[Rfam]
RNA sequence: UUUGGGAAAUGAUGAUCGAAACUGUUUGACAUAGGCCUAUGCUGUGCUGAGUAUUCUAUUGAUUUGCACGUCAGUCUGAUCCCAAA
Numbered sequence: 001u002u003u004g005g006g007a008a009a010u011g012a013u014g015a016u017c018g019a020a021a022c023u024g025u026u027u028g029a030c031a032u033a034g035g036c037c038u039a040u041g042c043u044g045u046g047c048u049g050a051g052u053a054u055u056c057u058a059u060u061g062a063u064u065u066g067c068a069c070g071u072c073a074g075u076c077u078g079a080u081c082c083c084a085a086a
Stems, first nucleotide, its partner, number of pairs: 001086007
The family of this 86-nucleotide RNA from Rosa chinensis is "Small nucleolar RNA Z122". It is annotated as a C/D-box small nucleolar RNA. The literature on the family includes a 1999 paper in Mol Cell Biol by Qu et al., "Seven novel methylation guide small nucleolar RNAs are processed from a common polycistronic transcript by Rat1p and RNase III in yeast".